[Rfam]
RNA: c-di-GMP-I riboswitch aptamer
Organism: Aquisalibacillus elongatus
RNA sequence: CUUCGAUAAAGGCAAACCCAUUGAAAAAUGGGGACGCAAAGUCACGGGUCUAAGGUUUCAAACUAUGACCGACGGGUUACCGAA
Numbered sequence: 001c002u003u004c005g006a007u008a009a010a011g012g013c014a015a016a017c018c019c020a021u022u023g024a025a026a027a028a029u030g031g032g033g034a035c036g037c038a039a040a041g042u043c044a045c046g047g048g049u050c051u052a053a054g055g056u057u058u059c060a061a062a063c064u065a066u067g068a069c070c071g072a073c074g075g076g077u078u079a080c081c082g083a084a
Stems, first nucleotide, its partner, number of pairs: 012037002017032006040078004045074002048069003055063003